[Rfam]
RNA: Mammalian CPEB3 ribozyme
RNA sequence: UGGGCAUUAAGGCAAGGUCACAGCAGAAGCGUUCAUAGCAAGGCCCUGUCAGAGUCCAACAAAUCUGUGAAUUCUGCU
Number, nucleotide and partner (000 for none) at each position: 001u000002g000003g000004g000005c000006a000007u000008u000009a000010a000011g000012g046013c000014a000015a000016g045017g044018u043019c042020a000021c000022a078023g077024c076025a075026g074027a073028a072029g000030c000031g039032u000033u000034c000035a000036u000037a000038g000039c031040a000041a000042g019043g018044c017045c016046c012047u000048g000049u000050c067051a066052g065053a064054g000055u062056c000057c000058a000059a000060c000061a000062a055063a000064u053065c052066u051067g050068u000069g000070a000071a000072u028073u027074c026075u025076g024077c023078u022